[Rfam]
RNA sequence: UGUGCCGGGGUGUCCAGGCCCUACGGCCGACUAACCCUAAUGGCGGCUGCGCCCCUCACACCCGCCCGCUGUUUUACUCGCUGACUUUCAGCGGGCAAAGGGGGCGGCCAAGGGAAAGGGGGGGAGGGAAUGGGGUGAAAAGAGUUCCGGCCUCAAAAAAAGCCAGCGAGGGGGACCCGCACCCCGGCCCACCCUGGGGUCCCUGUCCCUCCUCCGCGGCCAGGGAUGGCCCCGCCCUCGCCCCUCGUGGAGGCCGCGGUCGGCAGGCUCAGCGCCGCUACCGCCGCGAAGAGUUCGUCUCUGUCAGCCUCGGCGGCGGCCGGGACCGGAGGGCCGGCCCGCCCACCCUGGGCAGCCGGGGGACCCCAGCAGAGCAAAACGGGGGCGGCGCCGCGGGGCGCUGAGCAUCCGCCGCUCCCUAAGACGUGGAGUGCGCGGUCGGCGCCGCCCCGACACCC
Number, nucleotide and partner (000 for none) at each position: 001u000002g000003u000004g000005c187006c186007g185008g184009g183010g182011u181012g180013u179014c000015c000016a000017g177018g176019c174020c173021c172022u171023a000024c000025g000026g000027c000028c000029g000030a000031c000032u000033a000034a000035c000036c000037c000038u000039a000040a000041u000042g000043g000044c000045g000046g000047c000048u000049g000050c000051g105052c104053c103054c102055c101056u000057c000058a000059c000060a000061c000062c000063c000064g096065c095066c094067c093068g092069c091070u090071g089072u000073u000074u000075u000076a000077c000078u000079c000080g167081c166082u165083g164084a000085c162086u160087u159088u158089c071090a070091g069092c068093g067094g066095g065096c064097a000098a000099a000100g000101g055102g054103g053104g052105c051106g000107g000108c000109c000110a000111a000112g000113g000114g000115a000116a000117a000118g000119g000120g000121g000122g000123g000124g000125a000126g000127g000128g000129a000130a000131u000132g000133g000134g000135g000136u000137g000138a000139a000140a000141a000142g000143a000144g000145u000146u000147c000148c000149g000150g000151c000152c000153u000154c000155a000156a000157a000158a088159a087160a086161a000162g085163c000164c083165a082166g081167c080168g000169a000170g000171g022172g021173g020174g019175a000176c018177c017178c000179g013180c012181a011182c010183c009184c008185c007186g006187g005188c000189c000190c000191a000192c000193c000194c369195u368196g367197g366198g365199g364200u363201c000202c000203c000204u000205g000206u000207c000208c000209c000210u000211c000212c000213u000214c000215c000216g000217c000218g000219g000220c000221c000222a000223g000224g339225g338226a000227u336228g335229g334230c333231c332232c331233c000234g000235c000236c324237c323238u322239c000240g320241c319242c318243c000244c000245u000246c000247g000248u000249g000250g000251a000252g000253g000254c000255c288256g287257c286258g285259g284260u000261c283262g282263g281264c000265a000266g276267g275268c274269u000270c000271a000272g000273c000274g268275c267276c266277g000278c000279u000280a000281c263282c262283g261284c259285c258286g257287c256288g255289a000290a302291g301292a300293g299294u000295u000296c000297g000298u000299c293300u292301c291302u290303g000304u000305c000306a000307g000308c000309c000310u000311c000312g000313g000314c000315g000316g000317c000318g242319g241320c240321c000322g238323g237324g236325a000326c000327c000328g000329g000330a000331g232332g231333g230334c229335c228336g227337g000338c225339c224340c000341g000342c000343c000344c000345a000346c000347c000348c000349u000350g000351g000352g000353c000354a000355g000356c000357c000358g000359g000360g000361g000362g000363a200364c199365c198366c197367c196368a195369g194370c000371a000372g000373a000374g000375c000376a000377a000378a000379a000380c000381g000382g000383g450384g449385g448386c447387g446388g445389c444390g443391c442392c441393g000394c000395g000396g000397g000398g000399c000400g000401c000402u000403g000404a000405g000406c000407a000408u000409c438410c437411g436412c435413c000414g000415c431416u430417c429418c428419c000420u000421a000422a000423g000424a000425c000426g000427u000428g418429g417430a416431g415432u000433g000434c000435g412436c411437g410438g409439u000440c000441g392442g391443c390444g389445c388446c387447g386448c385449c384450c383451c000452g000453a000454c000455a000456c000457c000458c000
Rfam assigns this 458-nucleotide RNA sequence from Sylvietta virens to the family "Vertebrate telomerase RNA". It scores 136 bits against the family's covariance model. Telomerase is a ribonucleoprotein reverse transcriptase that synthesises telomeric DNA. Telomerase RNAs differ greatly in sequence and structure between vertebrates, ciliates and yeasts, but they share a 5' pseudoknot structure close to the template sequence. Taxonomically the source falls in Sylvietta (Eukaryota, Bilateria, Saurischia, Telluraves). Its Rfam clan is "Telomerase clan". Rfam classes the family as a non-coding RNA gene.